[Rfam]
RNA: Small nucleolar RNA SNORA77
Organism: Tupaia belangeri
RNA sequence: GCAGACUCACUCUGCACCCGGCAGCAUUCCCAGGGCGGGUGCUUUUGCCGUCUGCAGAGAAACGUACAGCGUGCGGCUCUUGACUGCAGGCGAUGCAGCUGCUGGGACACGGGU
Numbered sequence: 001g002c003a004g005a006c007u008c009a010c011u012c013u014g015c016a017c018c019c020g021g022c023a024g025c026a027u028u029c030c031c032a033g034g035g036c037g038g039g040u041g042c043u044u045u046u047g048c049c050g051u052c053u054g055c056a057g058a059g060a061a062a063c064g065u066a067c068a069g070c071g072u073g074c075g076g077c078u079c080u081u082g083a084c085u086g087c088a089g090g091c092g093a094u095g096c097a098g099c100u101g102c103u104g105g106g107a108c109a110c111g112g113g114u
Stems, first nucleotide, its partner, number of pairs: 001055006014042007022033001024031001067104004073099002076096002081092002084089001